glmS glucosamine-6-phosphate activated ribozyme aptamer: a 225-nucleotide sequence from Paenibacillus albidus. Lineage of the source: Bacteria > Bacillati > Bacilli > Caryophanales > Paenibacillus.

[Rfam]
RNA sequence: UCCGUAUUACAAGCGCCAGAGCUUGGUCUUGCGCGGGGGAGAAGGGAAAGCCGAUGAUGCCCGUAAGGUUGGGCAGGCUUGACCGGAUCACGGCAGAUGUAAGCUGACGAGGUGGAGGUGUUCGAAAUGUUCGGCGGGGACCUCCCGGUGAUGCACCAGAGCCGUAAAUGGAGAACGGAAAAUGGAAGGGCGACCUUUCACACAACGUUGCCAUGGGUGCACUAU
Numbered sequence: 001u002c003c004g005u006a007u008u009a010c011a012a013g014c015g016c017c018a019g020a021g022c023u024u025g026g027u028c029u030u031g032c033g034c035g036g037g038g039g040a041g042a043a044g045g046g047a048a049a050g051c052c053g054a055u056g057a058u059g060c061c062c063g064u065a066a067g068g069u070u071g072g073g074c075a076g077g078c079u080u081g082a083c084c085g086g087a088u089c090a091c092g093g094c095a096g097a098u099g100u101a102a103g104c105u106g107a108c109g110a111g112g113u114g115g116a117g118g119u120g121u122u123c124g125a126a127a128u129g130u131u132c133g134g135c136g137g138g139g140a141c142c143u144c145c146c147g148g149u150g151a152u153g154c155a156c157c158a159g160a161g162c163c164g165u166a167a168a169u170g171g172a173g174a175a176c177g178g179a180a181a182a183u184g185g186a187a188g189g190g191c192g193a194c195c196u197u198u199c200a201c202a203c204a205a206c207g208u209u210g211c212c213a214u215g216g217g218u219g220c221a222c223u224a225u
Stems, first nucleotide, its partner, number of pairs: 020105006114145005122134004146164004150157001169215002173211001175209001183200007